This 226-nucleotide sequence from Clostridium sp. FS41 belongs to the Rfam family "Group II catalytic intron D1-D4-6".
The base pairs follow the family's consensus structure.
About the family: Group II introns are found in rRNA, tRNA and mRNA of organelles in fungi, plants and protists, and also in mRNA in bacteria.
The family has 174 seed sequences and 1,617 matches in Rfam 15.1.
The source organism's lineage runs through Bacteria, Bacillati, Eubacteriales, Clostridiaceae and Clostridium.
[Rfam]
RNA sequence: AAAGUCCCACGCUGUAAGGUAUAAGCCGUACCGCAGCUAGCGAGUCUUGGGUGGGUAGUAGAGAUACUGACUCCUAAGCGUAGACAGCGAAACUUGCAGGGCAUAACUAUAUAUAGCCUUGAUAUCAAAAUGUAAUUGGGAAGGAAGAGGUGCUCCUAUUCACUGAAAGCAAUACGGCUGUAAACGAUAAUGGCGAGAAUACAGCCGCUUCCCCGGUUUUUUUAGG
Numbered sequence: 001a002a003a004g005u006c007c008c009a010c011g012c013u014g015u016a017a018g019g020u021a022u023a024a025g026c027c028g029u030a031c032c033g034c035a036g037c038u039a040g041c042g043a044g045u046c047u048u049g050g051g052u053g054g055g056u057a058g059u060a061g062a063g064a065u066a067c068u069g070a071c072u073c074c075u076a077a078g079c080g081u082a083g084a085c086a087g088c089g090a091a092a093c094u095u096g097c098a099g100g101g102c103a104u105a106a107c108u109a110u111a112u113a114u115a116g117c118c119u120u121g122a123u124a125u126c127a128a129a130a131u132g133u134a135a136u137u138g139g140g141a142a143g144g145a146a147g148a149g150g151u152g153c154u155c156c157u158a159u160u161c162a163c164u165g166a167a168a169g170c171a172a173u174a175c176g177g178c179u180g181u182a183a184a185c186g187a188u189a190a191u192g193g194c195g196a197g198a199a200u201a202c203a204g205c206c207g208c209u210u211c212c213c214c215g216g217u218u219u220u221u222u223u224a225g226g
Base pairs, nucleotide, nucleotide: 011037012036013035014034018032019031020030021029022196027193040088041087044085045084046083047082048080049079050075051074053072054071056069057068058067059066060065113223116217117216118215121214138213139212140211141210142209143208144170149164150163151162152161175207176206177205178204179203180202181201182200185197